[Rfam]
RNA: Purine riboswitch aptamer
RNA sequence: AAGUAGACAUCCUGAUAUCCUCGUAUAUACUCGAUAAUAUGGUUCGAGAGUCUCUACCCGGCGCCGUAAAUGACCGGACUACGAGGGAACACCGGUUUUCU
Numbered sequence: 001a002a003g004u005a006g007a008c009a010u011c012c013u014g015a016u017a018u019c020c021u022c023g024u025a026u027a028u029a030c031u032c033g034a035u036a037a038u039a040u041g042g043u044u045c046g047a048g049a050g051u052c053u054c055u056a057c058c059c060g061g062c063g064c065c066g067u068a069a070a071u072g073a074c075c076g077g078a079c080u081a082c083g084a085g086g087g088a089a090c091a092c093c094g095g096u097u098u099u100c101u
Base pairs, nucleotide, nucleotide: 018087019086020085021084022083023082024081025080030048031047032046033045034044058077059076060075061074062072063071